Description
Rhodo-rpoB RNA: a 91-nucleotide RNA.
RNA sequence: AGGUCGGGAGGUGCCCUGUGGGACGGACAUCAUGAAUAGACCGAAUCGUAUCAUCUCGUAGGGAUAGGCACCGUGGCCCGACGGUGACUGU
Numbered sequence: 001a002g003g004u005c006g007g008g009a010g011g012u013g014c015c016c017u018g019u020g021g022g023a024c025g026g027a028c029a030u031c032a033u034g035a036a037u038a039g040a041c042c043g044a045a046u047c048g049u050a051u052c053a054u055c056u057c058g059u060a061g062g063g064a065u066a067g068g069c070a071c072c073g074u075g076g077c078c079c080g081a082c083g084g085u086g087a088c089u090g091u
Stems, first nucleotide, its partner, number of pairs: 002042004010031004015026002064091004069086005